About this RNA
Glutamine riboswitch aptamer (glnA leader): a 75-nucleotide sequence from Leptolyngbya ectocarpi. Pairs were carried over by alignment from the consensus structure, which is taken from published work. Taxonomically the source falls in Leptolyngbya ectocarpi (Bacteria, Cyanobacteriota, Cyanophyceae, Leptolyngbya). Rfam links the family to the GO term glutamine binding.
RNA sequence: ACCGUUCAUCCUGAGUUCAAAAUGCUUUGAAUGUUGAAGGACGGAAGUAGGGAUGGUUUCCCGAAGGAACGCGCC
Numbered sequence: 001a002c003c004g005u006u007c008a009u010c011c012u013g014a015g016u017u018c019a020a021a022a023u024g025c026u027u028u029g030a031a032u033g034u035u036g037a038a039g040g041a042c043g044g045a046a047g048u049a050g051g052g053a054u055g056g057u058u059u060c061c062c063g064a065a066g067g068a069a070c071g072c073g074c075c
Stems, first nucleotide, its partner, number of pairs: 003071005009041004044072001050062003